[Rfam]
RNA: MIR397 microRNA precursor family
Organism: Camellia sinensis
RNA sequence: UGCAAAACCAUCAUUGAGUCUAGCGUUGAUGAAAAGCCCUAUAAUUUUUCUUAGAUUUCUUCAUCAACGCUGCCUCAAUUAUGUUUUUG
Numbered sequence: 001u002g003c004a005a006a007a008c009c010a011u012c013a014u015u016g017a018g019u020c021u022a023g024c025g026u027u028g029a030u031g032a033a034a035a036g037c038c039c040u041a042u043a044a045u046u047u048u049u050c051u052u053a054g055a056u057u058u059c060u061u062c063a064u065c066a067a068c069g070c071u072g073c074c075u076c077a078a079u080u081a082u083g084u085u086u087u088u089g
Stems, first nucleotide, its partner, number of pairs: 006086002009083003013079006021072008030063003
Dot-bracket structure: .....((.(((.((((((..((((((((.(((............................))).)))))))).)))))).))).))...